[Rfam]
RNA sequence: AAUAUAUGCCAUUAUAAAGAUAACAUCUGAACUUAGUCAGAACCGGAAGGUAGCAGCUAUAAGGAAACGUGUCUUGUAUAGUGGUUUUAUUUUUUUAG
Numbered sequence: 001a002a003u004a005u006a007u008g009c010c011a012u013u014a015u016a017a018a019g020a021u022a023a024c025a026u027c028u029g030a031a032c033u034u035a036g037u038c039a040g041a042a043c044c045g046g047a048a049g050g051u052a053g054c055a056g057c058u059a060u061a062a063g064g065a066a067a068c069g070u071g072u073c074u075u076g077u078a079u080a081g082u083g084g085u086u087u088u089a090u091u092u093u094u095u096u097a098g
Stems, first nucleotide, its partner, number of pairs: 004092001006090003009084006015076001017075006026064003034059004042051003
Source information:
The family of this 98-nucleotide RNA from Williamsoniiplasma luminosum is "Bacterial small signal recognition particle RNA". It is annotated as a non-coding RNA gene. The family's consensus secondary structure is taken from published work. The signal recognition particle (SRP) is a universally conserved ribonucleoprotein involved in the co-translational targeting of proteins to membranes.